[Rfam]
RNA sequence: AUCGUUCAUCUGUUGUCACCAACAGACGGAAGUAGGGAAUCAAUAUCCCGAAGGAACGCGCC
Numbered sequence: 001a002u003c004g005u006u007c008a009u010c011u012g013u014u015g016u017c018a019c020c021a022a023c024a025g026a027c028g029g030a031a032g033u034a035g036g037g038a039a040u041c042a043a044u045a046u047c048c049c050g051a052a053g054g055a056a057c058g059c060g061c062c
Base pairs, nucleotide, nucleotide: 003058004057005056006055007054009026010025011024012023013022014021015020029059035049036048037047